[Rfam]
RNA sequence: ACUCAACAAGAAUUAAUUUAAAAAGGUGAGUUUAGGUUGUAAAAGCAUGCCGUUCCUUUUAAGGACUACGGAUCCUUGAGCAGCCUGGUAGCCUUAAACCUGUUUUUAGGAGUUU
Numbered sequence: 001a002c003u004c005a006a007c008a009a010g011a012a013u014u015a016a017u018u019u020a021a022a023a024a025g026g027u028g029a030g031u032u033u034a035g036g037u038u039g040u041a042a043a044a045g046c047a048u049g050c051c052g053u054u055c056c057u058u059u060u061a062a063g064g065a066c067u068a069c070g071g072a073u074c075c076u077u078g079a080g081c082a083g084c085c086u087g088g089u090a091g092c093c094u095u096a097a098a099c100c101u102g103u104u105u106u107u108a109g110g111a112g113u114u115u
Stems, first nucleotide, its partner, number of pairs: 023095005034086005043077003050071004
6S-Flavo RNA: a 115-nucleotide RNA sequence from Abyssalbus ytuae.
The source organism's lineage runs through Bacteria, Pseudomonadati, Flavobacteriia, Flavobacteriaceae and Abyssalbus.
It scores 98 bits against the family's covariance model.